[Rfam]
RNA sequence: UUUGAAUGCGAAGAGUCAAGCAAGAUUGAGCGGAACAGUGACCGCUCGAAGUGGAUAACUGCGCCACAGAAGCGGGUAGUUGUAUUGCUUGCGUGUGAUGCGAUGGAAUGCCCGCAUCACACUGCAACGCAGCCCGGGUUAAAAAAUGCUGGCAAAGACAUUCGAGAUACAACCUCGGGUGUCUUUU
Numbered sequence: 001u002u003u004g005a006a007u008g009c010g011a012a013g014a015g016u017c018a019a020g021c022a023a024g025a026u027u028g029a030g031c032g033g034a035a036c037a038g039u040g041a042c043c044g045c046u047c048g049a050a051g052u053g054g055a056u057a058a059c060u061g062c063g064c065c066a067c068a069g070a071a072g073c074g075g076g077u078a079g080u081u082g083u084a085u086u087g088c089u090u091g092c093g094u095g096u097g098a099u100g101c102g103a104u105g106g107a108a109u110g111c112c113c114g115c116a117u118c119a120c121a122c123u124g125c126a127a128c129g130c131a132g133c134c135c136g137g138g139u140u141a142a143a144a145a146a147u148g149c150u151g152g153c154a155a156a157g158a159c160a161u162u163c164g165a166g167a168u169a170c171a172a173c174c175u176c177g178g179g180u181g182u183c184u185u186u187u
Stems, first nucleotide, its partner, number of pairs: 001058002029046005036151005059132005072092007080172006093122010156184011
RNA: FuFi-1 RNA